[Rfam]
RNA sequence: GGGACGGAGGCCGUUAAGACUUGCAGUGAUGUUUAGGGCAAUGAUCACAUGAACAUCACUUUAAGUCUGUGCUGUCUCCC
Numbered sequence: 001g002g003g004a005c006g007g008a009g010g011c012c013g014u015u016a017a018g019a020c021u022u023g024c025a026g027u028g029a030u031g032u033u034u035a036g037g038g039c040a041a042u043g044a045u046c047a048c049a050u051g052a053a054c055a056u057c058a059c060u061u062u063a064a065g066u067c068u069g070u071g072c073u074g075u076c077u078c079c080c
Stems, first nucleotide, its partner, number of pairs: 017068007026059010